Rfam assigns this 111-nucleotide sequence from Ensifer sp. M14 to the family "EcpR1".
The source organism's lineage runs through Bacteria, Pseudomonadati, Pseudomonadota, Alphaproteobacteria and Ensifer.
The base pairs follow the family's consensus structure, which was predicted with WAR.
Rfam links the family to the GO terms regulation of translation in response to stress, negative regulation of cell cycle and mRNA binding.
About the family: Perviously named SmelC291, SmrC10, or Sra33. According to its overproduction phenotype it was renamed Elongated Cell Phenotype RNA1. Induced by stress,EcpR1 negatively regulates cell cycle master regulatory genes dnaA and gcrA at post-transcriptional level by base pairing between its strongly conserved GC-rich loop and the target mRNAs.
The match comes from Rfam's covariance-model search (101 bits).
[Rfam]
RNA sequence: UUACCCCAUGAUGCUCAGGUCCGCCGCAUCUCCUGGGUCGUGGGGUCGGUCGGUUGGCUUUUGACACCUGCGGAAUCCUCGUGCCGCGGUUAGAAGCCAGCCGACCCCCAU
Numbered sequence: 001u002u003a004c005c006c007c008a009u010g011a012u013g014c015u016c017a018g019g020u021c022c023g024c025c026g027c028a029u030c031u032c033c034u035g036g037g038u039c040g041u042g043g044g045g046u047c048g049g050u051c052g053g054u055u056g057g058c059u060u061u062u063g064a065c066a067c068c069u070g071c072g073g074a075a076u077c078c079u080c081g082u083g084c085c086g087c088g089g090u091u092a093g094a095a096g097c098c099a100g101c102c103g104a105c106c107c108c109c110a111u
Stems, first nucleotide, its partner, number of pairs: 003046008014037006048106011